[Rfam]
RNA: Small nucleolar RNA U3
RNA sequence: AAGACUAUACUUCACAGGAUCAUUUCUGUAGUCAGUCUUCACUUACUUUCACACAAAAUGAAAGCACACCAUACCCACGCUGAUGAGAUGAAUCGGUUUAUUCGGUAGCGUGAGGAUUUGCGUUAUGCCCUUUACGUUGUGACUUGUUGCACGUAUGAUGGGUGUAGCGCUUCGAUGAUCGCUCGGUCACACGAAUAAAACGAAUUCUGAGUGGU
Numbered sequence: 001a002a003g004a005c006u007a008u009a010c011u012u013c014a015c016a017g018g019a020u021c022a023u024u025u026c027u028g029u030a031g032u033c034a035g036u037c038u039u040c041a042c043u044u045a046c047u048u049u050c051a052c053a054c055a056a057a058a059u060g061a062a063a064g065c066a067c068a069c070c071a072u073a074c075c076c077a078c079g080c081u082g083a084u085g086a087g088a089u090g091a092a093u094c095g096g097u098u099u100a101u102u103c104g105g106u107a108g109c110g111u112g113a114g115g116a117u118u119u120g121c122g123u124u125a126u127g128c129c130c131u132u133u134a135c136g137u138u139g140u141g142a143c144u145u146g147u148u149g150c151a152c153g154u155a156u157g158a159u160g161g162g163u164g165u166a167g168c169g170c171u172u173c174g175a176u177g178a179u180c181g182c183u184c185g186g187u188c189a190c191a192c193g194a195a196u197a198a199a200a201c202g203a204a205u206u207c208u209g210a211g212u213g214g215u
Base pairs, nucleotide, nucleotide: 001039002038003037004036005035009032010031011030015028016027017026018025019024048062049061050060051059075214076213077212078211093203094202095201097199098198099197100196101195102194103193104192108182109181110180120170121169122168123167125165126164127163128162139150140149141148142147